[Rfam]
A member of the RNA family "Alphaproteobacterial sRNA ar9", 154 nucleotides long. It scores 111 bits against the family's covariance model. The base pairs follow the family's consensus structure.

RNA sequence: ACUAAAGAGGCAUUUCUCAUUGGGAAACGCCCAUUUCGCGGUCAAAGUCUUGGGAGGAUUGGAUCUCAGGCGCGCUUUGUUCGCUGCCCCCGGGUAACCGGGAAAUGGAUCACGCGAUACUUUUACAACAAGGCUUCAUGCCUUGUUUUUUUUU
Numbered sequence: 001a002c003u004a005a006a007g008a009g010g011c012a013u014u015u016c017u018c019a020u021u022g023g024g025a026a027a028c029g030c031c032c033a034u035u036u037c038g039c040g041g042u043c044a045a046a047g048u049c050u051u052g053g054g055a056g057g058a059u060u061g062g063a064u065c066u067c068a069g070g071c072g073c074g075c076u077u078u079g080u081u082c083g084c085u086g087c088c089c090c091c092g093g094g095u096a097a098c099c100g101g102g103a104a105a106u107g108g109a110u111c112a113c114g115c116g117a118u119a120c121u122u123u124u125a126c127a128a129c130a131a132g133g134c135u136u137c138a139u140g141c142c143u144u145g146u147u148u149u150u151u152u153u154u
Base pairs, nucleotide, nucleotide: 004153005152006151011029013027014026015025016024037116038115039114040113047059048058049057050056062111063110064109065108066107069088070087071086072084073083074082090101091100092099127147128146129145130144131143132142133141134140